Shown here is a 113-nucleotide RNA sequence from Cercocebus atys, a member of the family "Y RNA". Lineage of the source: Eukaryota > Gnathostomata > Eutheria > Euarchontoglires > Cercocebus. The literature on the family includes a 2007 paper in Theory Biosci by Mosig et al., "Evolution of the vertebrate Y RNA cluster". The family's RNA type in Rfam is non-coding RNA gene.
RNA sequence: CACUGGCCUGAAAGUAGUGAAUUAUCUCAGUUGAUUAUUCACAGUCAGUUACGGAUCAAACUCCUUGUUCUAUUCUUUCCCUCCUUCUCACUACCGCACUUGACUAGUCUUUA
Numbered sequence: 001c002a003c004u005g006g007c008c009u010g011a012a013a014g015u016a017g018u019g020a021a022u023u024a025u026c027u028c029a030g031u032u033g034a035u036u037a038u039u040c041a042c043a044g045u046c047a048g049u050u051a052c053g054g055a056u057c058a059a060a061c062u063c064c065u066u067g068u069u070c071u072a073u074u075c076u077u078u079c080c081c082u083c084c085u086u087c088u089c090a091c092u093a094c095c096g097c098a099c100u101u102g103a104c105u106a107g108u109c110u111u112u113a
Base pairs, nucleotide, nucleotide: 002108003107004106005105006104008102010101011100014097015096016092017091018090019089020088044074047071048070